Qrr RNA: a 96-nucleotide sequence from Vibrio aerogenes. For this family Rfam cites "The Small RNA Chaperone Hfq and Multiple Small RNAs Control Quorum Sensing in Vibrio harveyi and Vibrio cholerae" (Lenz et al., Cell, 2004). Rfam's curators write: This family represents a set of small RNAs (the Qrr RNAs) that are thought to be involved in the regulation of quorum sensing in Vibrio species. It is believed that these RNAs, guided by a protein, Hfq, can mediate the destabilisation of the quorum-sensing master regulators LuxR/HapR mRNAs. Pairs were carried over by alignment from the consensus structure, which is taken from published work. It scores 84 bits against the family's covariance model. The organism belongs to Vibrio aerogenes, within Bacteria.
RNA sequence: UGACCCAUUUGGGUCACCUAGCCAACUGACGUUGUUAGUGAAUAUCAUAUUCACAUUCUGACAGCCAAUAGACUCAAUGCUAUUGGCUUUUUUUUA
Dot-bracket structure: ((((((....))))))...............((((..(((((((...)))))))......))))(((((((........)))))))..........